[Rfam]
RNA sequence: CAAGUAAGCUGGACAGCCGCGCGGGCGGGGCGAAAGGCCCGUCUGUGAGGAAAGUCCGGGCUCCGCAGGGCAAGGAUAACGGGUAACACCCGCCGGGGGCGACCCUAGGAAAAGUGCAACAGAGAUAUACCGCCCACAGUCACACCUGUGGCCGUGAGUAAGGGUGGAAAGGCGAGGUAAGAGCUCACCCGACGGCUGGGAACAGUCCGUCGCUGUAAACUCUAUUCGGAGCAACGCCGUGGGAACGCAAUAGACCGGCCCGGUCGCGUUCAGGGGGCGGCUGGAGCGUGGGGGCAACUCCACGUCGAGAUAGAUGGCUGUCUUAAAAGACAGAACCCGGCUUACAGGCUUACUUGUCAA
Numbered sequence: 001c002a003a004g005u006a007a008g009c010u011g012g013a014c015a016g017c018c019g020c021g022c023g024g025g026c027g028g029g030g031c032g033a034a035a036g037g038c039c040c041g042u043c044u045g046u047g048a049g050g051a052a053a054g055u056c057c058g059g060g061c062u063c064c065g066c067a068g069g070g071c072a073a074g075g076a077u078a079a080c081g082g083g084u085a086a087c088a089c090c091c092g093c094c095g096g097g098g099g100c101g102a103c104c105c106u107a108g109g110a111a112a113a114g115u116g117c118a119a120c121a122g123a124g125a126u127a128u129a130c131c132g133c134c135c136a137c138a139g140u141c142a143c144a145c146c147u148g149u150g151g152c153c154g155u156g157a158g159u160a161a162g163g164g165u166g167g168a169a170a171g172g173c174g175a176g177g178u179a180a181g182a183g184c185u186c187a188c189c190c191g192a193c194g195g196c197u198g199g200g201a202a203c204a205g206u207c208c209g210u211c212g213c214u215g216u217a218a219a220c221u222c223u224a225u226u227c228g229g230a231g232c233a234a235c236g237c238c239g240u241g242g243g244a245a246c247g248c249a250a251u252a253g254a255c256c257g258g259c260c261c262g263g264u265c266g267c268g269u270u271c272a273g274g275g276g277g278c279g280g281c282u283g284g285a286g287c288g289u290g291g292g293g294g295c296a297a298c299u300c301c302a303c304g305u306c307g308a309g310a311u312a313g314a315u316g317g318c319u320g321u322c323u324u325a326a327a328a329g330a331c332a333g334a335a336c337c338c339g340g341c342u343u344a345c346a347g348g349c350u351u352a353c354u355u356g357u358c359a360a
Base pairs, nucleotide, nucleotide: 001356002355003354004353005352006351007350008349009348010347011345012322013321014320015319016318017317018316020047021046022045023044024043025042026041027040028039052343053342054341056340057339058338059337060336061231062230063229064228069261070260074227075226076225077224078223080092081091082090083089094108095106096105097104098103109222110221114220115219116216117215118214130163131162132159133158135156136155137154139152140151141150142149143148171189172188174186175185176184191211192210193209194208195207196205197204198203235279236278237277243271244270245269246268247267248266253265254264255263256262286305287304288303289302290301291300292299293298
The record is a 360-nucleotide sequence from Flintibacter faecis, which matches "Bacterial RNase P class A" in Rfam. The source organism's lineage runs through Bacteria, Bacillati, Clostridia, Eubacteriales and Flintibacter. The family's RNA type in Rfam is ribozyme.